[Rfam]
RNA sequence: UUUCGUUACAUACCCACGCCUUACCAGGACUAAACAGCGUGGUAAAACAACAGUCCUUCAUACCUACAUCGGAGGGUGAUGUAGGAAUAUUUUAUCUG
Dot-bracket structure: ..............(((((..(...[[[[[.....))))))...........]]]]].....(((((((.........))))))).............
Numbered sequence: 001u002u003u004c005g006u007u008a009c010a011u012a013c014c015c016a017c018g019c020c021u022u023a024c025c026a027g028g029a030c031u032a033a034a035c036a037g038c039g040u041g042g043u044a045a046a047a048c049a050a051c052a053g054u055c056c057u058u059c060a061u062a063c064c065u066a067c068a069u070c071g072g073a074g075g076g077u078g079a080u081g082u083a084g085g086a087a088u089a090u091u092u093u094a095u096c097u098g
Stems, first nucleotide, its partner, number of pairs: 015041005022036001026057005063085007
The family of this 98-nucleotide RNA sequence is "PhotoRC-II RNA". It is one of the family's seed sequences. The base pairs follow the family's consensus structure, which is taken from published work.